[Rfam]
RNA sequence: CAACUUGUCAGCGGCUCACCUCCUCCCGGGCCUCUGACACACUGAACGCACUACUCCUCCUCCCAAGUGCGUUUCCAGAUUGAGCCCGUCGCACCUCCUCCCGCGACGGGCUUUUUCU
Numbered sequence: 001c002a003a004c005u006u007g008u009c010a011g012c013g014g015c016u017c018a019c020c021u022c023c024u025c026c027c028g029g030g031c032c033u034c035u036g037a038c039a040c041a042c043u044g045a046a047c048g049c050a051c052u053a054c055u056c057c058u059c060c061u062c063c064c065a066a067g068u069g070c071g072u073u074u075c076c077a078g079a080u081u082g083a084g085c086c087c088g089u090c091g092c093a094c095c096u097c098c099u100c101c102c103g104c105g106a107c108g109g110g111c112u113u114u115u116u117c118u
Stems, first nucleotide, its partner, number of pairs: 007038003011034001013032005044074009082113011
This 118-nucleotide sequence from Oryzicola mucosus belongs to the Rfam family "Alphaproteobacterial ar14". The family's RNA type in Rfam is small RNA. Rfam describes the family as follows. Smr14C2 was renamed NfeR1 (Nodule Formation Efficiency RNA) highly expressed in salt stress and during the symbiotic interaction on legume roots. Rfam links the family to the GO term biological process involved in symbiotic interaction. Taxonomically the source falls in Oryzicola (Bacteria, Pseudomonadota, Alphaproteobacteria, Hyphomicrobiales).